[Rfam]
RNA: Small nucleolar RNA SNORD42
Organism: Zosterops hypoxanthus
RNA sequence: GUGCAAGUGAUGUAAACUUUGAUUCUACUGAGUAGCGUGAUGCUUCCAAAGGAACCACUGAUGCAC
Number, nucleotide and partner (000 for none) at each position: 001g066002u065003g064004c063005a062006a000007g000008u000009g000010a000011u000012g000013u000014a000015a000016a000017c000018u000019u000020u000021g000022a000023u000024u000025c000026u000027a000028c000029u000030g000031a000032g000033u000034a000035g000036c000037g000038u000039g000040a000041u000042g000043c000044u000045u000046c000047c000048a000049a000050a000051g000052g000053a000054a000055c000056c000057a000058c000059u000060g000061a000062u005063g004064c003065a002066c001